[Rfam]
Nucleotides: 156
Stems, first nucleotide, its partner, number of pairs: 028062002031059002034050005120141009
Number, partner (000 for none) and nucleotide at each position: 001000a002000a003000a004000a005000a006000g007000u008000g009000a010000a011000u012000a013000a014000g015000c016000u017000u018000g019000c020000c021000g022000u023000a024000g025000a026000c027000a028062g029061c030000a031059g032058g033000u034050g035049c036048c037047g038046g039000a040000c041000g042000u043000g044000a045000g046038u047037c048036g049035g050034c051000u052000u053000a054000a055000u056000a057000u058032c059031c060000c061029g062028c063000c064000g065000a066000g067000g068000u069000g070000u071000u072000g073000c074000g075000a076000u077000a078000g079000a080000u081000u082000c083000g084000a085000a086000u087000u088000u089000a090000c091000a092000c093000a094000g095000c096000c097000a098000u099000g100000u101000g102000u103000g104000u105000u106000c107000u108000g109000a110000a111000u112000g113000a114000a115000u116000u117000c118000c119000a120141g121140c122139c123138u124137c125136c126135g127134u128133a129000u130000g131000u132000c133128u134127a135126c136125g137124g138123g139122g140121g141120c142000u143000u144000u145000c146000c147000u148000u149000a150000u151000u152000u153000c154000u155000a156000g
The family of this 156-nucleotide RNA sequence from Xylanibacillus composti is "Ribosomal protein L10 leader". On this family, see Zengel and Lindahl, Prog Nucleic Acid Res Mol Biol 1994: "Diverse mechanisms for regulating ribosomal protein synthesis in Escherichia coli". It is annotated as a cis-regulatory leader. A search with the family's covariance model found it, with a score of 66 bits.